[Rfam]
RNA: U11 spliceosomal RNA
RNA sequence: AAAAAGGGUCAGUUGGCUAAUUAUGCCACGCUCACCCUUUGCUGGUGAGUGCUGUAUGGCUAUCAAGACAUAUGGCUGACAUAAUUUUUGUGAACUUAUAGGGUUGGCUCGUUUAGCCGACCCUUCAA
Numbered sequence: 001a002a003a004a005a006g007g008g009u010c011a012g013u014u015g016g017c018u019a020a021u022u023a024u025g026c027c028a029c030g031c032u033c034a035c036c037c038u039u040u041g042c043u044g045g046u047g048a049g050u051g052c053u054g055u056a057u058g059g060c061u062a063u064c065a066a067g068a069c070a071u072a073u074g075g076c077u078g079a080c081a082u083a084a085u086u087u088u089u090g091u092g093a094a095c096u097u098a099u100a101g102g103g104u105u106g107g108c109u110c111g112u113u114u115a116g117c118c119g120a121c122c123c124u125u126c127a128a
Base pairs, nucleotide, nucleotide: 008080009079010078011077012076014028015027016026017025029051030050031049032048033047034046035045036044052075053074054073055072056071057070058069100124101123102122103121104120105119106118107117108116109115